[Rfam]
Purine riboswitch aptamer: a 102-nucleotide sequence from Priestia taiwanensis. The match comes from Rfam's covariance-model search (88 bits). Pairs were carried over by alignment from the consensus structure, which is taken from published work. About the family: Riboswitches are metabolite binding domains within certain messenger RNAs that serve as precision sensors for their corresponding targets.
RNA sequence: UAGUAGAUUCAUAAAGAACCUCGUAUAAUCUUGGGGAUAUGGCCCAUAAGUUUCUACCCAGUAACCGUAAAUUGCUGGACUAUGAGGGAGAGAGUUUAUUUU
Number, nucleotide and partner (000 for none) at each position: 001u000002a000003g000004u000005a000006g000007a000008u000009u000010c000011a000012u000013a000014a000015a000016g000017a000018a000019c087020c086021u085022c084023g083024u082025a081026u000027a000028a000029u049030c000031u000032u046033g045034g044035g043036g000037a000038u000039a000040u000041g000042g000043c035044c034045c033046a032047u000048a000049a029050g000051u000052u000053u000054c000055u000056a000057c000058c078059c077060a076061g075062u074063a073064a072065c000066c000067g000068u000069a000070a000071a000072u064073u063074g062075c061076u060077g059078g058079a000080c000081u025082a024083u023084g022085a021086g020087g019088g000089a000090g000091a000092g000093a000094g000095u000096u000097u000098a000099u000100u000101u000102u000